SAM riboswitch aptamer (S box leader): a 107-nucleotide RNA from Cerasibacillus terrae. The base pairs follow the family's consensus structure, which is taken from published work. The organism belongs to Cerasibacillus, within Bacteria. Rfam links the family to the GO term regulation of gene expression. A search with the family's covariance model found it, with a score of 82 bits.

RNA sequence: CUCUUAUUCAGAGUCGGUGGAGGGACAGGCCCUGUGAAACCCAGCAACCAUCAUAGAGUGAAAAGGUGCUAACCUGAGCAAGGAUUAUUUACCUUGAACAAUAAGAG
Number, nucleotide and partner (000 for none) at each position: 001c107002u106003c105004u104005u103006a102007u101008u100009c000010a000011g000012a000013g042014u000015c000016g041017g040018u039019g000020g000021a000022g032023g031024g030025a000026c078027a000028g000029g075030c024031c023032c022033u000034g000035u000036g000037a000038a000039a018040c017041c016042c013043a070044g069045c068046a067047a000048c066049c065050a000051u061052c060053a059054u000055a000056g000057a000058g000059u053060g052061a051062a000063a000064a000065g049066g048067u046068g045069c044070u043071a000072a000073c000074c000075u029076g000077a000078g026079c096080a095081a094082g093083g092084a000085u000086u000087a000088u000089u000090u000091a000092c083093c082094u081095u080096g079097a000098a000099c000100a008101a007102u006103a005104a004105g003106a002107g001